This 268-nucleotide sequence from a Candidatus Woesearchaeota archaeon belongs to the Rfam family "Archaeal RNase P".
The family is grouped with related families in Rfam's "RNaseP clan".
Gene Ontology terms of the family: multimeric ribonuclease P complex, ribonuclease P activity and tRNA processing.
The family's RNA type in Rfam is ribozyme.
RNA sequence: GGAAGCGGGCUUAAAAGCCCGUUUUAGCAGUAGUCUGUGAGGAAAGUCCGCCCACCAUUUUGGCUGCUCCCUGAAAGGGGAGUUCCUGAAAGGGAAGGCAACCGCUCAGAAACGAGACGGCCCCUGUUUGGGAUGAUAGAGGCUCUUGACGACUUCAGGGGAACCGGUGAAACGGCGAGUCCCUGCCGGUGCAAGUCUUUGACGCUUAGUCAAAUGUUAAGGCAAACCUUCCGAAAGGGGUUUGACAGAAGGUGGCUUAUUCUUAUCC
Number, nucleotide and partner (000 for none) at each position: 001g268002g267003a266004a000005g264006c000007g262008g261009g260010c221011u220012u219013a218014a217015a000016a000017g000018c000019c039020c000021g000022u000023u000024u000025u000026a000027g000028c000029a000030g000031u000032a000033g000034u000035c000036u000037g000038u000039g019040a000041g000042g000043a000044a258045a257046g256047u000048c255049c254050g253051c252052c251053c191054a190055c189056c188057a000058u000059u000060u000061u000062g187063g186064c185065u000066g183067c082068u081069c080070c079071c078072u000073g000074a000075a000076a000077g000078g071079g070080g069081a068082g067083u096084u095085c094086c093087u092088g000089a000090a000091a000092g087093g086094g085095a084096a083097g182098g181099c000100a000101a000102c000103c177104g176105c175106u000107c000108a000109g000110a000111a000112a000113c000114g000115a000116g000117a000118c166119g165120g164121c161122c160123c159124c158125u157126g156127u000128u000129u000130g000131g000132g000133a000134u000135g000136a000137u000138a146139g145140a000141g000142g000143c000144u000145c139146u138147u000148g000149a000150c000151g000152a000153c000154u000155u000156c126157a125158g124159g123160g122161g121162a000163a000164c120165c119166g118167g000168u000169g000170a000171a000172a000173c000174g000175g105176c104177g103178a000179g000180u000181c098182c097183c066184u000185g064186c063187c062188g056189g055190u054191g053192c000193a000194a000195g203196u202197c201198u000199u000200u000201g197202a196203c195204g000205c000206u000207u000208a000209g000210u000211c000212a000213a000214a000215u000216g000217u014218u013219a012220a011221g010222g000223c000224a000225a000226a000227c000228c000229u000230u000231c000232c000233g000234a000235a000236a000237g000238g000239g000240g000241u000242u000243u000244g000245a000246c000247a000248g000249a000250a000251g052252g051253u050254g049255g048256c046257u045258u044259a000260u009261u008262c007263u000264u005265a000266u003267c002268c001